Background:
Shown here is an 86-nucleotide sequence from Cuscuta europaea, a member of the family "Small nucleolar RNA SNORD34". About the family: snoRNA U34 is found in intron 5 of the ribosomal protein L13a gene in humans. A reference for the family is Chen et al. (2003), "The high diversity of snoRNAs in plants: identification and comparative study of 120 snoRNA genes from Oryza sativa", Nucleic Acids Res. Rfam classes the family as a C/D-box small nucleolar RNA. It scores 41 bits against the family's covariance model. The base pairs follow the family's consensus structure, which was predicted with PFOLD.
RNA sequence: UAUGGCCUAUGAUGGGAAAAAUACAUUUGCCUACAUUGUCUGAUCACUCUAAUAUGAAAGAUAUUUGUAUAUGAUCUGAGGCUUUU
Numbered sequence: 001u002a003u004g005g006c007c008u009a010u011g012a013u014g015g016g017a018a019a020a021a022u023a024c025a026u027u028u029g030c031c032u033a034c035a036u037u038g039u040c041u042g043a044u045c046a047c048u049c050u051a052a053u054a055u056g057a058a059a060g061a062u063a064u065u066u067g068u069a070u071a072u073g074a075u076c077u078g079a080g081g082c083u084u085u086u
Stems, first nucleotide, its partner, number of pairs: 002085001004083004
Dot-bracket structure: .(.((((........................................................................)))).).